[Rfam]
RNA sequence: AUUUUGAUUGAUUUGUCUUUUUCCGCUUACUGCCGGUGGCAUUUGAAAUUCUCGACAGCAAACCGAAAAAGGCGCCUCAAUCAAUU
Numbered sequence: 001a002u003u004u005u006g007a008u009u010g011a012u013u014u015g016u017c018u019u020u021u022u023c024c025g026c027u028u029a030c031u032g033c034c035g036g037u038g039g040c041a042u043u044u045g046a047a048a049u050u051c052u053c054g055a056c057a058g059c060a061a062a063c064c065g066a067a068a069a070a071g072g073c074g075c076c077u078c079a080a081u082c083a084a085u086u
Base pairs, nucleotide, nucleotide: 006082007081008080010078011077015073017071018070019069020068021067022066023065027062028061030058031057032056034054035053036049037048

Description: The family of this 86-nucleotide sequence from Aedes aegypti is "mir-316 microRNA precursor family". The sequence is in the family's curated seed alignment. The literature on the family includes a 2007 paper in Genome Res by Stark et al., "Systematic discovery and characterization of fly microRNAs using 12 Drosophila genomes". Lineage of the source: Eukaryota > Ecdysozoa > Panorpida > Aedes > Stegomyia.